[Rfam]
This 235-nucleotide RNA sequence from Alligator sinensis belongs to the Rfam family "Small nucleolar RNA SNORA73 family". From the family's description: U17 (SNORA73A and SNORA73B) also known as E1 belongs to the H/ACA class of small nucleolar RNAs (snoRNAs). Vertebrate U17 is intron-encoded and ranges in length from 200-230 nucleotides, longer than most snoRNAs. It is one of the most abundant snoRNAs in human cells and is essential for the cleavage of pre-rRNA within the 5' external transcribed spacer (ETS). This cleavage leads to the formation of 18S rRNA. Regions of the U17 RNA are complementary to rRNA and act as guides for RNA/RNA interactions, although these regions do not seem to be well conserved between organisms. Gene Ontology terms of the family: nucleolus and RNA processing. The family is grouped with related families in Rfam's "snR30-U17 clan". It scores 185 bits against the family's covariance model. The base pairs follow the family's consensus structure, which is taken from published work.
RNA sequence: CCAACGUGGACAUCCGGAGAGGUUGCUCUCUCUCGGCUCUGUCCGUGUGGCGUACGGGAGCGUAGGCCUUCGGGCUCCGUGACGUAUAGUCCCCUUCCACGACGUUGGAGAACAAGCCGGGCCUCUGGUCUGCAGCCUGCCGAGGCCGGCCCGCUGGUCUGCAGCCUGCAUAUUCCUAUGGCUUCUCUGAGUCCUUGGACCGUGACAGAGGAGACAAACCAUGCAGGAAACAAGU
Numbered sequence: 001c002c003a004a005c006g007u008g009g010a011c012a013u014c015c016g017g018a019g020a021g022g023u024u025g026c027u028c029u030c031u032c033u034c035g036g037c038u039c040u041g042u043c044c045g046u047g048u049g050g051c052g053u054a055c056g057g058g059a060g061c062g063u064a065g066g067c068c069u070u071c072g073g074g075c076u077c078c079g080u081g082a083c084g085u086a087u088a089g090u091c092c093c094c095u096u097c098c099a100c101g102a103c104g105u106u107g108g109a110g111a112a113c114a115a116g117c118c119g120g121g122c123c124u125c126u127g128g129u130c131u132g133c134a135g136c137c138u139g140c141c142g143a144g145g146c147c148g149g150c151c152c153g154c155u156g157g158u159c160u161g162c163a164g165c166c167u168g169c170a171u172a173u174u175c176c177u178a179u180g181g182c183u184u185c186u187c188u189g190a191g192u193c194c195u196u197g198g199a200c201c202g203u204g205a206c207a208g209a210g211g212a213g214a215c216a217a218a219c220c221a222u223g224c225a226g227g228a229a230a231c232a233a234g235u
Base pairs, nucleotide, nucleotide: 001108002107003106004105005104006103007102008044009043010042011041012040014036015035016034018029019028020027021026047100048099049098050097056093057092058091059090060087062085063084065080165227166226167225168224169223170222171221182213183212184211185210186209187208191200192199193198